[Rfam]
RNA sequence: AGCACGCAUGACGGGUGUCCGAGGUUUUUACUGCAAAGUAAACCUCGGUCUGAGAAAUACCGUUAGAACUUGAUCUGGACAAUACCAGCGAAAGGACAUGCCUGCCUCAUUUU
Numbered sequence: 001a002g003c004a005c006g007c008a009u010g011a012c013g014g015g016u017g018u019c020c021g022a023g024g025u026u027u028u029u030a031c032u033g034c035a036a037a038g039u040a041a042a043c044c045u046c047g048g049u050c051u052g053a054g055a056a057a058u059a060c061c062g063u064u065a066g067a068a069c070u071u072g073a074u075c076u077g078g079a080c081a082a083u084a085c086c087a088g089c090g091a092a093a094g095g096a097c098a099u100g101c102c103u104g105c106c107u108c109a110u111u112u113u
Base pairs, nucleotide, nucleotide: 006101007100008099009098010097011063012062013061014060016057017050019048020047021046022045023044024043025042026041027040069094070093071092075088076087077086078085
RNA: TPP riboswitch aptamer (THI element)